Background
This 123-nucleotide RNA from Gossypium trilobum belongs to the Rfam family "MIR7504 microRNA precursor family". Gene Ontology terms of the family: miRNA-mediated post-transcriptional gene silencing and RISC complex. Rfam 15.1 lists 7,343 matches to the family in 61 species. The match comes from Rfam's covariance-model search (95 bits).
[Rfam]
RNA sequence: AAUAAGAAAAUGACAAAUUAGAUUGUUUUCCUGAUUUGCAGCUUUUUUUCUCCUGAAAAAAUUCAAAUUCAACAAAAAAUGCUAAAAAUCGGGGGAAAAAAUCUGAUUUAUCAUUCUCCUAUU
Numbered sequence: 001a002a003u004a005a006g007a008a009a010a011u012g013a014c015a016a017a018u019u020a021g022a023u024u025g026u027u028u029u030c031c032u033g034a035u036u037u038g039c040a041g042c043u044u045u046u047u048u049u050c051u052c053c054u055g056a057a058a059a060a061a062u063u064c065a066a067a068u069u070c071a072a073c074a075a076a077a078a079a080u081g082c083u084a085a086a087a088a089u090c091g092g093g094g095g096a097a098a099a100a101a102u103c104u105g106a107u108u109u110a111u112c113a114u115u116c117u118c119c120u121a122u123u
Stems, first nucleotide, its partner, number of pairs: 001123004006118002009115005015109008023100002026098002028095010040083002044079004